[Rfam]
RNA sequence: AGGACUAAGAGAGAAGCAGGGUCUGAUCCACAGCUUCCAUGUCAGCUGUUGAUCAGCCCUUGACUCUCUCUUUCUCUCUA
Numbered sequence: 001a002g003g004a005c006u007a008a009g010a011g012a013g014a015a016g017c018a019g020g021g022u023c024u025g026a027u028c029c030a031c032a033g034c035u036u037c038c039a040u041g042u043c044a045g046c047u048g049u050u051g052a053u054c055a056g057c058c059c060u061u062g063a064c065u066c067u068c069u070c071u072u073u074c075u076c077u078c079u080a
Stems, first nucleotide, its partner, number of pairs: 007072008017062003021058001023056006031048004

A member of the RNA family "mir-574 microRNA precursor family" from Myotis myotis, 80 nucleotides long. A search with the family's covariance model found it, with a score of 86 bits. Clan: mir-574 microRNA precursor clan. Taxonomically the source falls in Myotis (Eukaryota, Deuterostomia, Chordata, Dipnotetrapodomorpha). Rfam 15.1 lists 4,084 matches to the family in 7 species. Gene Ontology terms of the family: RISC complex and miRNA-mediated post-transcriptional gene silencing.